[Rfam]
RNA sequence: UAAAAAGAAUACGUUAUACCGUAGACAGUAGGUGCUUGCAUAAGCUUAAUAACCUACCGAGGUGUCUGAAUAAAUAUGAGAUGAUCCGUUUAAGUGAUAUCUGAUGAAUUCAAACAAGCCUUCAUGUCUACUGCAGACAUGGAGGCUUUUUUAUCUUAGA
Numbered sequence: 001u002a003a004a005a006a007g008a009a010u011a012c013g014u015u016a017u018a019c020c021g022u023a024g025a026c027a028g029u030a031g032g033u034g035c036u037u038g039c040a041u042a043a044g045c046u047u048a049a050u051a052a053c054c055u056a057c058c059g060a061g062g063u064g065u066c067u068g069a070a071u072a073a074a075u076a077u078g079a080g081a082u083g084a085u086c087c088g089u090u091u092a093a094g095u096g097a098u099a100u101c102u103g104a105u106g107a108a109u110u111c112a113a114a115c116a117a118g119c120c121u122u123c124a125u126g127u128c129u130a131c132u133g134c135a136g137a138c139a140u141g142g143a144g145g146c147u148u149u150u151u152u153a154u155c156u157u158a159g160a
Base pairs, nucleotide, nucleotide: 028057029056030055031054032053033052034045035044036043119145120144121143122142123141124140125139126138127137128136